[Rfam]
RNA: c-di-GMP-I-GGC riboswitch aptamer
RNA sequence: UGAGAUAAAGGCAAACCUGUUGAAAAGCAGGGACGCAAAGCCACGGGCCUAAAACCAUUACAGGUAAUGUAAUUGCAAGGCAGCCGGGCUACCAUGU
Numbered sequence: 001u002g003a004g005a006u007a008a009a010g011g012c013a014a015a016c017c018u019g020u021u022g023a024a025a026a027g028c029a030g031g032g033a034c035g036c037a038a039a040g041c042c043a044c045g046g047g048c049c050u051a052a053a054a055c056c057a058u059u060a061c062a063g064g065u066a067a068u069g070u071a072a073u074u075g076c077a078a079g080g081c082a083g084c085c086g087g088g089c090u091a092c093c094a095u096g097u
Stems, first nucleotide, its partner, number of pairs: 004093001011036002016031006034083001039090004044086003047081003